[Rfam]
Shown here is a 106-nucleotide RNA from Geobacter pickeringii, a member of the family "TPP riboswitch aptamer (THI element)". Gene Ontology term of the family: thiamine pyrophosphate binding. Lineage of the source: Bacteria > Pseudomonadati > Thermodesulfobacteriota > Desulfuromonadia > Geobacter. The match comes from Rfam's covariance-model search (70 bits).
RNA sequence: UUCAUUCGCUAGGGGAGUUUCGACUGAGAGUUCGCCGUCGUGCGGCGAGCGACCCUUUGAACCUGAUCCGGGUAAUGCCGGCGGAGGGAAGCGCGUUCAUCCAAAG
Numbered sequence: 001u002u003c004a005u006u007c008g009c010u011a012g013g014g015g016a017g018u019u020u021c022g023a024c025u026g027a028g029a030g031u032u033c034g035c036c037g038u039c040g041u042g043c044g045g046c047g048a049g050c051g052a053c054c055c056u057u058u059g060a061a062c063c064u065g066a067u068c069c070g071g072g073u074a075a076u077g078c079c080g081g082c083g084g085a086g087g088g089a090a091g092c093g094c095g096u097u098c099a100u101c102c103a104a105a106g
Stems, first nucleotide, its partner, number of pairs: 007093004011056004017024002031049008062087003068081004